[Rfam]
RNA: Clostridiales-1 RNA
Organism: Eubacterium ventriosum
RNA sequence: UAAUUACAGUGUCAAAAAGUCUCAUCCCACCUGUGCUUGCACAAUGGUGGGAUAGUGACUUUGAGACACGCCCCUAUAUGAGCAUAAAAGUGGAGCGUAAGCUUCACGAUAUGCGAAUAUUGGGAUAGGAUUGUGAAAGUGCGAAGCACGUAACAAUCCGUGUAAUUA
Dot-bracket structure: (((((((..((((..((((((.(..((((((((((....))))..))))))...).))))))..))))...(((.((((..((((....(((((((....)))))))...))))..)))).)))...(((((((....((((...))))...)))))))..)))))))